[Rfam]
RNA: DUF3800-VIII RNA
RNA sequence: AGCGUCCUGCUCCUCUCGAAGCCUUGCGUUUAUACGUGGGGUACUUAUGUAGGGAGUGCGGGACGCU
Numbered sequence: 001a002g003c004g005u006c007c008u009g010c011u012c013c014u015c016u017c018g019a020a021g022c023c024u025u026g027c028g029u030u031u032a033u034a035c036g037u038g039g040g041g042u043a044c045u046u047a048u049g050u051a052g053g054g055a056g057u058g059c060g061g062g063a064c065g066c067u
Stems, first nucleotide, its partner, number of pairs: 001067010012056001014055004021042009